[Rfam]
RNA sequence: AAGUGUUAUGGCUCUUUUAAAAUUUUUCUAGCAGGCUUUUCAGUUUUUGCCAGAAAGCCCCU
Numbered sequence: 001a002a003g004u005g006u007u008a009u010g011g012c013u014c015u016u017u018u019a020a021a022a023u024u025u026u027u028c029u030a031g032c033a034g035g036c037u038u039u040u041c042a043g044u045u046u047u048u049g050c051c052a053g054a055a056a057g058c059c060c061c062u
Stems, first nucleotide, its partner, number of pairs: 034059007043050002